[Rfam]
RNA sequence: GACAAAUGAAUAGAAAAUGUUCAUAUAGUCGCAGUGAUAAGGUCUGCAAGUUUCUACCGGACUACCGUAAAUAGUCCGACUAUGAGCGAAAGUGUACGCUAC
Numbered sequence: 001g002a003c004a005a006a007u008g009a010a011u012a013g014a015a016a017a018u019g020u021u022c023a024u025a026u027a028g029u030c031g032c033a034g035u036g037a038u039a040a041g042g043u044c045u046g047c048a049a050g051u052u053u054c055u056a057c058c059g060g061a062c063u064a065c066c067g068u069a070a071a072u073a074g075u076c077c078g079a080c081u082a083u084g085a086g087c088g089a090a091a092g093u094g095u096a097c098g099c100u101a102c
Base pairs, nucleotide, nucleotide: 018088019087020086021085022084023083024082025081029049031047032046033045034044058078059077060076061075062074063073064072